[Rfam]
RNA sequence: AAGUUGCCUUCCACGUAUUCCAAAUCAGUUUAUAAAUCGGGAGCGGAUGCGCUGGCAUGUUGAGCAGUUUGAACAAUACUUAAGGCAUCAGGUCAGCGACGUCCCCCCCAGACAUAGCUGCCUGUCAGGACAGGCACCCCGCCUGUCCUCGCAACACUCCUAAUGGUCUUGACCCGAAUUCUCCCCCCAGAAUUCGG
Numbered sequence: 001a002a003g004u005u006g007c008c009u010u011c012c013a014c015g016u017a018u019u020c021c022a023a024a025u026c027a028g029u030u031u032a033u034a035a036a037u038c039g040g041g042a043g044c045g046g047a048u049g050c051g052c053u054g055g056c057a058u059g060u061u062g063a064g065c066a067g068u069u070u071g072a073a074c075a076a077u078a079c080u081u082a083a084g085g086c087a088u089c090a091g092g093u094c095a096g097c098g099a100c101g102u103c104c105c106c107c108c109c110a111g112a113c114a115u116a117g118c119u120g121c122c123u124g125u126c127a128g129g130a131c132a133g134g135c136a137c138c139c140c141g142c143c144u145g146u147c148c149u150c151g152c153a154a155c156a157c158u159c160c161u162a163a164u165g166g167u168c169u170u171g172a173c174c175c176g177a178a179u180u181c182u183c184c185c186c187c188c189a190g191a192a193u194u195c196g197g
Stems, first nucleotide, its partner, number of pairs: 041168002044165002089124003094120002097117001101113002127149009174197004179192003
Notes
The record is a 197-nucleotide RNA from Halopseudomonas laoshanensis, which matches "RgsA sRNA" in Rfam. On this family, see Livny et al., Nucleic Acids Res 2006: "Identification of 17 Pseudomonas aeruginosa sRNAs and prediction of sRNA-encoding genes in 10 diverse pathogens using the bioinformatic tool sRNAPredict2". NCBI's taxonomy places the organism under Bacteria, Pseudomonadati, Pseudomonadota, Pseudomonadales, Halopseudomonas. This small RNA (sRNA) was computationally identified in the genome of the opportunistic pathogen Pseudomonas aeruginosa and its expression verified by northern blot analysis. P16 sRNA appears to be conserved across several Pseudomonas species and Azotobacter vinelandii. In these species it is consistently located downstream of a predicted TatD deoxyribonuclease gene. P16 has a predicted Rho independent terminator at the 3' end but the function of P16 is unknown.